[Rfam]
The record is a 396-nucleotide sequence from Chlamydia psittaci, which matches "Bacterial RNase P class A" in Rfam.
RNA sequence: CGGAAGAGAAAGGCAACCGCUUUUUGUACCUUUACUAAGGUAUAUUAAGAGGAAAGUCUGGACUUCAUAAGAAAAGAUACUGGAGAAACUCCAGGGGCCGUAAGGCUACGGAAAGUGCAACAGAAAACAUUCCGCUAUAAAAGGGUCUUUUUAUAGACAGGCUGAAAAUUCCUAUUUUAAGAAUAGGAGCUAUUAAGGUGACUUAGUAGACGUGCAAACCCUAUCUGAAGCAAGAGAAAAAGUUUUUGUUUCUGCAUAAUGAGGAAUGGUAUUCCUCAUGAACUUUUUCAUAAUCGCUUGAGGGAUAUAGUAAUAUAUCCCCUAGAUGAAUGGUUGCCCUCAAGAUGGGUUUUCUCAUCUUGUAGACAGAAUCCAGCUUACCCUCUCUUCCGAUAU
Numbered sequence: 001c002g003g004a005a006g007a008g009a010a011a012g013g014c015a016a017c018c019g020c021u022u023u024u025u026g027u028a029c030c031u032u033u034a035c036u037a038a039g040g041u042a043u044a045u046u047a048a049g050a051g052g053a054a055a056g057u058c059u060g061g062a063c064u065u066c067a068u069a070a071g072a073a074a075a076g077a078u079a080c081u082g083g084a085g086a087a088a089c090u091c092c093a094g095g096g097g098c099c100g101u102a103a104g105g106c107u108a109c110g111g112a113a114a115g116u117g118c119a120a121c122a123g124a125a126a127a128c129a130u131u132c133c134g135c136u137a138u139a140a141a142a143g144g145g146u147c148u149u150u151u152u153a154u155a156g157a158c159a160g161g162c163u164g165a166a167a168a169u170u171c172c173u174a175u176u177u178u179a180a181g182a183a184u185a186g187g188a189g190c191u192a193u194u195a196a197g198g199u200g201a202c203u204u205a206g207u208a209g210a211c212g213u214g215c216a217a218a219c220c221c222u223a224u225c226u227g228a229a230g231c232a233a234g235a236g237a238a239a240a241a242g243u244u245u246u247u248g249u250u251u252c253u254g255c256a257u258a259a260u261g262a263g264g265a266a267u268g269g270u271a272u273u274c275c276u277c278a279u280g281a282a283c284u285u286u287u288u289c290a291u292a293a294u295c296g297c298u299u300g301a302g303g304g305a306u307a308u309a310g311u312a313a314u315a316u317a318u319c320c321c322c323u324a325g326a327u328g329a330a331u332g333g334u335u336g337c338c339c340u341c342a343a344g345a346u347g348g349g350u351u352u353u354c355u356c357a358u359c360u361u362g363u364a365g366a367c368a369g370a371a372u373c374c375a376g377c378u379u380a381c382c383c384u385c386u387c388u389u390c391c392g393a394u395a396u
Base pairs, nucleotide, nucleotide: 001392002391003390004389005388006387007386008385009384012338013337014336015335016334017333018332020049021048022047025044026043027042028041029040030039031038054379055378056377058376059375060374061373062372063230064229065228066227071270075226076225077224078223079222080094081093082092083091084090095109096107097106098105099104110221111220115219116218117215118214119213132161133160135156136155137154138153139152140151141150142149170188171187172186173185174184175183189211190209191208192207193206194205195204196203197202234295235294242283243282244281245280247278262276263275264274265273266272302321303320304319305318306317307316308315309314
Dot-bracket structure: (((((((((..(((((((.(((..(((((((......)))))))..)))....[[[.[[[[[((((....[...((((((((((.....)))))(((((....)))).)((...(((((............((.((((((((......))))))))...))........((((((.......))))))(((((((((....)))))))).).)))..)))))))))))))...((......((((.(..............(((((...].))))).).))))..........))......((((((((....))))))))..........))))))).................................]]]]]]]]....)))))))))....
Record summary
Rfam classes the family as a ribozyme. A search with the family's covariance model found it, with a score of 236 bits. Taxonomically the source falls in Chlamydia psittaci (Bacteria, Pseudomonadati, Chlamydiia, Chlamydiaceae). Rfam describes the family as follows. Ribonuclease P (RNase P) is a ubiquitous endoribonuclease, found in archaea, bacteria and eukarya as well as chloroplasts and mitochondria. Its best characterised activity is the generation of mature 5'-ends of tRNAs by cleaving the 5'-leader elements of precursor-tRNAs. Cellular RNase Ps are ribonucleoproteins. RNA from bacterial RNase Ps retains its catalytic activity in the absence of the protein subunit, i.e. it is a ribozyme.